A member of the RNA family "Small nucleolar RNA SNORA44" from Cavia porcellus, 130 nucleotides long. Taxonomically the source falls in Cavia (Eukaryota, Sarcopterygii, Tetrapoda, Euarchontoglires). The base pairs follow the family's consensus structure, which was predicted with PFOLD. Its Rfam clan is "SNORA44 clan". A search with the family's covariance model found it, with a score of 128 bits. Rfam classes the family as an H/ACA-box small nucleolar RNA. Rfam 15.1 lists 1,056 matches to the family in 599 species. About the family: ACA44 is a member of the H/ACA class of snoRNA that guide the sites of modification of uridines to pseudouridines.
RNA sequence: AAGCAUGUUUCCCAGGGCGAUGGCUGGUAUGGCUAUAGGAUCUCCAACUGCUUGCAAGAGUAACCUGGAGAGACUUUGACAGUUCAGGUCAACCCAAUACCUGUGGCUGCCACUCACCUUUCCUAUAAGA
Numbered sequence: 001a002a003g004c005a006u007g008u009u010u011c012c013c014a015g016g017g018c019g020a021u022g023g024c025u026g027g028u029a030u031g032g033c034u035a036u037a038g039g040a041u042c043u044c045c046a047a048c049u050g051c052u053u054g055c056a057a058g059a060g061u062a063a064c065c066u067g068g069a070g071a072g073a074c075u076u077u078g079a080c081a082g083u084u085c086a087g088g089u090c091a092a093c094c095c096a097a098u099a100c101c102u103g104u105g106g107c108u109g110c111c112a113c114u115c116a117c118c119u120u121u122c123c124u125a126u127a128a129g130a
Stems, first nucleotide, its partner, number of pairs: 011038001016034003020030003067123006082110002085103004